[Rfam]
Shown here is a 121-nucleotide RNA from Shewanella halifaxensis, a member of the family "Phenylalanine leader peptide". On this family, see Zurawski et al., Proc Natl Acad Sci U S A 1978: "Nucleotide sequence of the leader region of the phenylalanine operon of Escherichia coli". Gene Ontology term of the family: cellular amino acid metabolic process. The family's consensus secondary structure was predicted with CMfinder.

RNA sequence: AAUAAAAUCCAUACUGCUUUUUUUACUUUCUUUUUUAUGCCCCCCACCCUCGGAGGCGGAAUUUCGGUGUAAAAACGAAAGUAAAAAUUCCAAAGCCUCCCACAUGGGAGGCUUUUUUAUA
Numbered sequence: 001a002a003u004a005a006a007a008u009c010c011a012u013a014c015u016g017c018u019u020u021u022u023u024u025a026c027u028u029u030c031u032u033u034u035u036u037a038u039g040c041c042c043c044c045c046a047c048c049c050u051c052g053g054a055g056g057c058g059g060a061a062u063u064u065c066g067g068u069g070u071a072a073a074a075a076c077g078a079a080a081g082u083a084a085a086a087a088u089u090c091c092a093a094a095g096c097c098u099c100c101c102a103c104a105u106g107g108g109a110g111g112c113u114u115u116u117u118u119a120u121a
Base pairs, nucleotide, nucleotide: 020087021086022085023084024083025082026081027080028079029078030077032075033074035072036071037070038069041056042055044053057066058065059064092115093114094113095112096111097110098109099108100107101106
The family has 71 seed sequences and 379 matches in Rfam 15.1.